[Rfam]
Annotation
Rfam assigns this 86-nucleotide sequence from Asparagus officinalis to the family "Small nucleolar RNA SNORD25". The match comes from Rfam's covariance-model search (65 bits). Its Rfam clan is "SNORD25 clan".
RNA sequence: UGUAGCGAUGAUGAUCCUACUACAGACCUGUAAUGAUUCUGCGGAAAUGAUCGCAAAAUCAAGAACAUCUAAGGGACUGAGUUUUA
Numbered sequence: 001u002g003u004a005g006c007g008a009u010g011a012u013g014a015u016c017c018u019a020c021u022a023c024a025g026a027c028c029u030g031u032a033a034u035g036a037u038u039c040u041g042c043g044g045a046a047a048u049g050a051u052c053g054c055a056a057a058a059u060c061a062a063g064a065a066c067a068u069c070u071a072a073g074g075g076a077c078u079g080a081g082u083u084u085u086a
Stems, first nucleotide, its partner, number of pairs: 002085001004083003